Saccharopolyspora sRNA 350: a 508-nucleotide RNA from Streptomyces sp. TLI_185. Pairs were carried over by alignment from the consensus structure, which was predicted with RNAfold. NCBI's taxonomy places the organism under Bacteria, Actinomycetota, Kitasatosporales, Streptomycetaceae, Streptomyces. On this family, see Liu et al., PLoS One 2013: "Prediction and characterization of small non-coding RNAs related to secondary metabolites in Saccharopolyspora erythraea". Rfam classes the family as an antisense RNA.
[Rfam]
RNA sequence: CGGGCCGUGUACUCCCAGAUGGCGUCCGGGUCGAGCAGCGCCGCGUCGCCGAAGUAGGCGCCGUCGGCGAGCACCCCGAGGACCGCGUCGUCGCCGUACGGGCCCGUGCCGAUCUUCUCGACCCUGCCGUGUGCCAGCAGAUACACCUCGUCGGUCUGGCUGCCGAACGAGGCGAUCACACUGCCGGGCGCGAACUCCUGCUGCCGGCAGCGCUGGGCGAGCUCCGCCAGCACCUCCUCGUCCUCGUACGACCGCAGCGCGGGAAGUUCGCCCAGCUCCGCGGGGAUGACCUCGACCCGGUCGCCGGUCUUCACGAACGUGAUGCGGCCGUCCCCCACUGCGUAGGUCAGUCGCCGGUUGACCCGGUACGUACCACCCUGGACGUUCACCCACGGCAGUGUGCGCAGCAGCCAGCGUGAGCUGAUCUCCUGCAUCUGGGGUGCCGACUUGGUCGUCGUGGCCAGGUUCCGCGCGGCGGCAGUGCCGAGGCUCUGCUGCGGCUUGCCCU
Dot-bracket structure: ......(((.((..((.(..(...((..(.((....((.(((..(.(((((..((....((.(.((((........(..(.((.((......)).)).)..).....)))).....((((.((..((..(.((.(((.((..(.....((...(((((((((..............))....))))))).))...).)).))).))..)..))..))))))..).))....)).((...(((.((...(..(.(.((((((.......)))...)))).)..).)).)))...))..))).)).)))).))...)).)..))..)..)(((........)))..........(..((...((.......)).))..)..))..)).))).((.((.(.((..(((.(.......))))...)).).)).)).....(..(.((.((((((((.......)))))).)).)).)..)((.(((.(..((......))..))))...)).